[Rfam]
RNA sequence: AGUAAUGGAUGAGGAGCAAAAAUCAUCAGUACCUUGUUACAUAAAGCUGCAAAUUGUAAUAAGUGAAAGGGAGAUUUGCCGAAAUGGUUUUCCGUUUGCAGACGGAAUGCUGUUGGAUUGCAUAUGAAUAAUAUGCCGUCUGUCAUUAUUCUUAGUAAUAAUGGAGUGCUUCCACUUGU
Numbered sequence: 001a002g003u004a005a006u007g008g009a010u011g012a013g014g015a016g017c018a019a020a021a022a023u024c025a026u027c028a029g030u031a032c033c034u035u036g037u038u039a040c041a042u043a044a045a046g047c048u049g050c051a052a053a054u055u056g057u058a059a060u061a062a063g064u065g066a067a068a069g070g071g072a073g074a075u076u077u078g079c080c081g082a083a084a085u086g087g088u089u090u091u092c093c094g095u096u097u098g099c100a101g102a103c104g105g106a107a108u109g110c111u112g113u114u115g116g117a118u119u120g121c122a123u124a125u126g127a128a129u130a131a132u133a134u135g136c137c138g139u140c141u142g143u144c145a146u147u148a149u150u151c152u153u154a155g156u157a158a159u160a161a162u163g164g165a166g167u168g169c170u171u172c173c174a175c176u177u178g179u
Base pairs, nucleotide, nucleotide: 006174007173008172009171011169016079017078018077019076020075023072024071033063034062035061036060037059038058039057083114084113085112086111087110088109090107091106092105093104094103115141116140117139118138120136121135122134123133124132125131143164144163145162146161147160148159149158

The family of this 179-nucleotide RNA from Oceanobacillus bengalensis is "Lysine riboswitch aptamer". The organism belongs to Oceanobacillus, within Bacteria. The base pairs follow the family's consensus structure, which is taken from published work.